[Rfam]
Overview: Small nucleolar RNA R12: an 81-nucleotide RNA sequence from Punica granatum. Rfam describes the family as follows. snoR12 is a C/D box small nucleolar RNA, which acts as a methylation guide for 25S ribosomal RNA in plants. snoR12 has been alternatively named snoZ44 in Arabidopsis and snoZ131 in rice. A reference for the family is Chen et al. (2003), "The high diversity of snoRNAs in plants: identification and comparative study of 120 snoRNA genes from Oryza sativa", Nucleic Acids Res.
Nucleotides: 081
Stems, first nucleotide, its partner, number of pairs: 001081005
Number, partner (000 for none) and nucleotide at each position: 001081g002080g003079c004078g005077g006000g007000a008000u009000g010000a011000u012000g013000a014000g015000a016000a017000g018000a019000a020000u021000c022000a023000a024000a025000c026000g027000a028000a029000u030000u031000c032000u033000c034000a035000u036000u037000a038000a039000u040000u041000g042000u043000u044000c045000a046000a047000c048000a049000a050000c051000a052000u053000g054000a055000g056000a057000u058000a059000a060000u061000a062000a063000c064000c065000a066000g067000c068000u069000a070000c071000g072000u073000u074000u075000g076000a077005c078004u079003g080002c081001u